[Rfam]
The family of this 60-nucleotide sequence from Cnephaeus nilssonii is "mir-9256 microRNA precursor family".
RNA sequence: AUAUACACUGAGUGGCCAGAUUAUUAUGAACGCAUAAUAAUCUGGCCACUCAGUGUAUAU
Dot-bracket structure: ...((((((((((((((.((((((((((....)))))))))).))))))))))))))...
The match comes from Rfam's covariance-model search (81 bits).